A member of the RNA family "mir-5928 microRNA precursor family" from Haemonchus placei, 75 nucleotides long.
The match comes from Rfam's covariance-model search (62 bits).
Pairs were carried over by alignment from the consensus structure, which was predicted with RNAalifold.
NCBI's taxonomy places the organism under Eukaryota, Nematoda, Strongyloidea, Trichostrongylidae, Haemonchus.
[Rfam]
RNA sequence: GGCACAAAUUUGAAGUAGGAUAGUCUGGUAGGAUCGGCUAACCCCACUAAACUACUGUACUUCAAGUUUGUGUCC
Number, nucleotide and partner (000 for none) at each position: 001g074002g073003c072004a071005c070006a069007a068008a067009u066010u000011u064012g063013a062014a061015g060016u059017a058018g000019g056020a000021u054022a053023g052024u000025c000026u049027g048028g047029u046030a000031g000032g043033a000034u041035c000036g000037g000038c000039u000040a000041a034042c000043c032044c000045c000046a029047c028048u027049a026050a000051a000052c023053u022054a021055c000056u019057g000058u017059a016060c015061u014062u013063c012064a011065a000066g009067u008068u007069u006070g005071u004072g003073u002074c001075c000